[Rfam]
Notes:
A member of the RNA family "c-di-AMP riboswitch aptamer (ydaO/yuaA leader)" from Clostridium sp. HMP27, 148 nucleotides long. Lineage of the source: Bacteria > Bacillati > Bacillota > Clostridiaceae > Clostridium.
Nucleotides: 148
Stems, first nucleotide, its partner, number of pairs: 012132003019035006038127005047056002057113003065090009093107003
Number, partner (000 for none) and nucleotide at each position: 001000u002000a003000u004000a005000u006000a007000a008000a009000u010000a011000a012132g013131c014130u015000g016000a017000a018000u019035c020034c021033c022032g023031g024030a025000a026000a027000a028000u029000a030024u031023c032022u033021g034020g035019g036000u037000a038127c039126g040125g041124a042123g043000g044000a045000a046000c047056c048055a049000a050000u051000g052000u053000a054000u055048u056047g057113g058112g059111g060000u061000u062000a063000a064000u065090c066089u067088u068087a069086g070085u071084a072083u073082a074000c075000u076000a077000u078000u079000a080000a081000a082073u083072a084071u085070a086069u087068u088067a089066a090065g091000u092000a093107g094106g095105g096000g097000u098000a099000c100000c101000u102000u103000u104000a105095c106094c107093c108000g109000a110000a111059c112058c113057c114000g115000u116000c117000a118000g119000c120000u121000a122000a123042c124041u125040u126039c127038g128000g129000a130014g131013g132012c133000a134000a135000a136000g137000a138000a139000a140000g141000g142000c143000g144000g145000a146000u147000a148000a